[Rfam]
The family of this 195-nucleotide RNA from Anopheles gambiae is "drz-agam-2-2 ribozyme". Lineage of the source: Eukaryota > Pancrustacea > Altocrustacea > Culicoidea > Anopheles gambiae.
RNA sequence: GUGAGCGAUUUGCUCUGAAAUGGGAUGGGAUCCGAAGCCCUCCGAGGGAUAACACAGGCUCUCCCAUCCAACUCCUAUUCCGACACGUCCUCGACGUGCAGAGUGGUAACCUGUUCCUCCAUAUAUCCUAGCUUGGAUACUCGGGCUAGAUCCAACCCCUUGGGCGGAUGGUGGCAUAUGGCGAACCAUGAGGGG
Numbered sequence: 001g002u003g004a005g006c007g008a009u010u011u012g013c014u015c016u017g018a019a020a021u022g023g024g025a026u027g028g029g030a031u032c033c034g035a036a037g038c039c040c041u042c043c044g045a046g047g048g049a050u051a052a053c054a055c056a057g058g059c060u061c062u063c064c065c066a067u068c069c070a071a072c073u074c075c076u077a078u079u080c081c082g083a084c085a086c087g088u089c090c091u092c093g094a095c096g097u098g099c100a101g102a103g104u105g106g107u108a109a110c111c112u113g114u115u116c117c118u119c120c121a122u123a124u125a126u127c128c129u130a131g132c133u134u135g136g137a138u139a140c141u142c143g144g145g146c147u148a149g150a151u152c153c154a155a156c157c158c159c160u161u162g163g164g165c166g167g168a169u170g171g172u173g174g175c176a177u178a179u180g181g182c183g184a185a186c187c188a189u190g191a192g193g194g195g
Base pairs, nucleotide, nucleotide: 014101023069024068025067026066027065028064029063030062032058033057073195074194075193076192078191079190085097086096087095089106090105110180112178113177114176116174117173119171120170125169126168127167128166133155134154135153136152137151138150157164158163